The record is an 86-nucleotide RNA sequence from Streptomyces sp. 303MFCol5.2, which matches "nrdJ RNA" in Rfam.
Taxonomically the source falls in Streptomyces (Bacteria, Bacillati, Actinomycetes, Kitasatosporales).
The family's consensus secondary structure is taken from published work.
[Rfam]
RNA sequence: ACCUGCUGUGGGUGAUAGCGCGUGGGUGCCCACAGCACAAGACAGAACAUCGUGUCACGGGAACAAACGUGGCAUUUUAGGGCGUU
Numbered sequence: 001a002c003c004u005g006c007u008g009u010g011g012g013u014g015a016u017a018g019c020g021c022g023u024g025g026g027u028g029c030c031c032a033c034a035g036c037a038c039a040a041g042a043c044a045g046a047a048c049a050u051c052g053u054g055u056c057a058c059g060g061g062a063a064c065a066a067a068c069g070u071g072g073c074a075u076u077u078u079a080g081g082g083c084g085u086u
Base pairs, nucleotide, nucleotide: 004037005036006035007034008033009032010031011030012029013028014027018023052075053074054073055072056071057070058069059068